This 433-nucleotide part of an RNA from Fusarium kuroshium belongs to the Rfam family "Eukaryotic large subunit ribosomal RNA".
The literature on the family includes a 2001 paper in Science by Yusupov et al., "Crystal structure of the ribosome at 5.5 A resolution".
The family is grouped with related families in Rfam's "LSU clan".

[Rfam]
RNA sequence: GGUAGUAGUAAAUACUUUAAUGAGAACUUAAAGGACCGAAGUGGGGAAAGGUUCUAUGUGAAUAGCGGUUGGAUAUGGGUUAGUUGAUUUUAAGCUAUAGGGAAGUUCUGUUUUAAAGGUGCAUUAUGUACUGUCUGGCGAAAGGGGAGCUGGUUAAUAUUCUGGCACCUGGAUGUGGGUUUUGCGCGGUAACGUAACUGAACGCGGAGACGACGGCGGGGGCCCUGGGUAGAGUUUUUUUUUUUUCUUAAUAGUCUCUUACCCUGAAAUCGGUUUAUUUGGAGCUAGGGUUUAAUGGCUGGAAGAGCCUAGCACCUCUGCUGGGUCUGGUGCGCUCUUGAUGUCUCUUGAAAAUCCGCGGGAAGGAAUAAUUCUCACGCUAGGUCGUACUUAUAACCGCAGCAGGUCUCCAAGGUGAAUAGCCUCUGGUUGA
Numbered sequence: 001g002g003u004a005g006u007a008g009u010a011a012a013u014a015c016u017u018u019a020a021u022g023a024g025a026a027c028u029u030a031a032a033g034g035a036c037c038g039a040a041g042u043g044g045g046g047a048a049a050g051g052u053u054c055u056a057u058g059u060g061a062a063u064a065g066c067g068g069u070u071g072g073a074u075a076u077g078g079g080u081u082a083g084u085u086g087a088u089u090u091u092a093a094g095c096u097a098u099a100g101g102g103a104a105g106u107u108c109u110g111u112u113u114u115a116a117a118g119g120u121g122c123a124u125u126a127u128g129u130a131c132u133g134u135c136u137g138g139c140g141a142a143a144g145g146g147g148a149g150c151u152g153g154u155u156a157a158u159a160u161u162c163u164g165g166c167a168c169c170u171g172g173a174u175g176u177g178g179g180u181u182u183u184g185c186g187c188g189g190u191a192a193c194g195u196a197a198c199u200g201a202a203c204g205c206g207g208a209g210a211c212g213a214c215g216g217c218g219g220g221g222g223c224c225c226u227g228g229g230u231a232g233a234g235u236u237u238u239u240u241u242u243u244u245u246u247c248u249u250a251a252u253a254g255u256c257u258c259u260u261a262c263c264c265u266g267a268a269a270u271c272g273g274u275u276u277a278u279u280u281g282g283a284g285c286u287a288g289g290g291u292u293u294a295a296u297g298g299c300u301g302g303a304a305g306a307g308c309c310u311a312g313c314a315c316c317u318c319u320g321c322u323g324g325g326u327c328u329g330g331u332g333c334g335c336u337c338u339u340g341a342u343g344u345c346u347c348u349u350g351a352a353a354a355u356c357c358g359c360g361g362g363a364a365g366g367a368a369u370a371a372u373u374c375u376c377a378c379g380c381u382a383g384g385u386c387g388u389a390c391u392u393a394u395a396a397c398c399g400c401a402g403c404a405g406g407u408c409u410c411c412a413a414g415g416u417g418a419a420u421a422g423c424c425u426c427u428g429g430u431u432g433a
Stems, first nucleotide, its partner, number of pairs: 015033006034431004043411004049391002054078006063071002085387003089145002094139002097111002100109003119131003149166005169383004174379005179373001186195003203360006212345004217340007225330003228248002231245003252301005261291006270282004308325007397406002413425004